[Rfam]
RNA: Glycine riboswitch aptamer
Organism: Frigidibacter albus
RNA sequence: CUCUGGAGAGUGGCGCGAGGGCAACCCCGCGCCCGCCGAAGGGAUAACGAUCUCAGGCGCAAGGACAGAG
Numbered sequence: 001c002u003c004u005g006g007a008g009a010g011u012g013g014c015g016c017g018a019g020g021g022c023a024a025c026c027c028c029g030c031g032c033c034c035g036c037c038g039a040a041g042g043g044a045u046a047a048c049g050a051u052c053u054c055a056g057g058c059g060c061a062a063g064g065a066c067a068g069a070g
Stems, first nucleotide, its partner, number of pairs: 001070005012033006035058003038054002042052002